[Rfam]
Annotation:
Rfam assigns this 175-nucleotide RNA from Vagococcus penaei to the family "Lysine riboswitch aptamer". The base pairs follow the family's consensus structure, which is taken from published work. The organism belongs to Vagococcus, within Bacteria. Gene Ontology term of the family: lysine biosynthetic process. The literature on the family includes a 2003 paper in Cell by Mandal et al., "Riboswitches Control Fundamental Biochemical Pathways in Bacillus subtilis and Other Bacteria".
RNA sequence: GAAAAAUCUAGAGGUUGCGAUAGUCAAGACUUUUUACUGAGUUUGAGGAAACGAUGACGUAAAAAUGAGGGGAUAUCGCCGAAACAAUAUUAGCAUCCUUAUCUAAUGUUGUUGGGGUUAUAGUGAAUAACUAUAACACUGUCUCAGUUGAACACUGAGUUGCGCUAGAGUUUUA
Numbered sequence: 001g002a003a004a005a006a007u008c009u010a011g012a013g014g015u016u017g018c019g020a021u022a023g024u025c026a027a028g029a030c031u032u033u034u035u036a037c038u039g040a041g042u043u044u045g046a047g048g049a050a051a052c053g054a055u056g057a058c059g060u061a062a063a064a065a066u067g068a069g070g071g072g073a074u075a076u077c078g079c080c081g082a083a084a085c086a087a088u089a090u091u092a093g094c095a096u097c098c099u100u101a102u103c104u105a106a107u108g109u110u111g112u113u114g115g116g117g118u119u120a121u122a123g124u125g126a127a128u129a130a131c132u133a134u135a136a137c138a139c140u141g142u143c144u145c146a147g148u149u150g151a152a153c154a155c156u157g158a159g160u161u162g163c164g165c166u167a168g169a170g171u172u173u174u175a
Base pairs, nucleotide, nucleotide: 007169008168009167010166011165017079018078019077020076021075022074024072025071031065032064033063034062035061036060037059083113084112085111086110087109088108089107090106091105092104093103114140115139117137118136119135120134121133122132123131124130143159144158145157146156147155148154
Dot-bracket structure: ......(((((.....((((((.((.....(((((((.....................))))))).....)).))))))...(((((((((((.........)))))))))))((.((((((((.....)))))))).))..((((((.....)))))).....)))))......